Rfam assigns this 81-nucleotide RNA from Scyliorhinus torazame to the family "mir-19 microRNA precursor family".
Lineage of the source: Eukaryota > Metazoa > Galeoidea > Scyliorhinidae > Scyliorhinus.
Clan: mir-19 clan.
Pairs were carried over by alignment from the consensus structure, which was predicted with RNAalifold.
Rfam 15.1 lists 2,337 matches to the family in 651 species.
For this family Rfam cites "Identification of novel genes coding for small expressed RNAs" (Lagos-Quintana et al., Science, 2001).
[Rfam]
RNA sequence: ACUCGCGGUUAGUUUUGCUGGCUUUGCAGUCAGUUGGUGAUCCUCAUUGCUGUGCAAAUCCACGCAAAACUGACCGCGUCG
Numbered sequence: 001a002c003u004c005g006c007g008g009u010u011a012g013u014u015u016u017g018c019u020g021g022c023u024u025u026g027c028a029g030u031c032a033g034u035u036g037g038u039g040a041u042c043c044u045c046a047u048u049g050c051u052g053u054g055c056a057a058a059u060c061c062a063c064g065c066a067a068a069a070c071u072g073a074c075c076g077c078g079u080c081g
Stems, first nucleotide, its partner, number of pairs: 004078015020061002023058006032051003
Dot-bracket structure: ...(((((((((((((((.((.((((((...(((..............))).)))))).))..)))))))))))))))...